[Rfam]
RNA sequence: AACCACGGACGGCCGUGGUGCUGACCCAAUACCGGCGGGACGGCCCGC
Numbered sequence: 001a002a003c004c005a006c007g008g009a010c011g012g013c014c015g016u017g018g019u020g021c022u023g024a025c026c027c028a029a030u031a032c033c034g035g036c037g038g039g040a041c042g043g044c045c046c047g048c
Base pairs, nucleotide, nucleotide: 002019003018004017005016006015007014008013035048036047037046038045039044
Description:
Guanidine-II riboswitch aptamer (mini-ykkC): a 48-nucleotide RNA from Pseudomonas fulva. Rfam links the family to the GO term regulation of gene expression. Rfam 15.1 lists 1,589 matches to the family in 1,229 species. From the family's description: Simpler in structure and has fewer highly conserved nucleotide positions than the ykkC-yxkD leader. It scores 44 bits against the family's covariance model.